[Rfam]
RNA: Y RNA
Organism: Saimiri boliviensis
RNA sequence: AGCUGGUCUGAAGGUAGUGAAUUAUAUCAAUUGAUUGUUCACAGUCAGUUACAGAUCGAAAUCCUUAUUCUACUCUUUUCCACUUCUCAGUACUGCACUUGACUAAAAA
Number, nucleotide and partner (000 for none) at each position: 001a000002g000003c000004u105005g104006g103007u102008c101009u000010g100011a099012a000013g000014g096015u095016a091017g000018u089019g088020a087021a000022u000023u000024a000025u000026a000027u000028c000029a000030a000031u000032u000033g000034a000035u000036u000037g000038u000039u000040c000041a000042c000043a074044g073045u000046c000047a071048g070049u000050u000051a000052c000053a000054g000055a000056u000057c000058g000059a000060a000061a000062u000063c000064c000065u000066u000067a000068u000069u000070c048071u047072a000073c044074u043075c000076u000077u000078u000079u000080c000081c000082a000083c000084u000085u000086c000087u020088c019089a018090g000091u016092a000093c000094u000095g015096c014097a000098c000099u011100u010101g008102a007103c006104u005105a004106a000107a000108a000109a000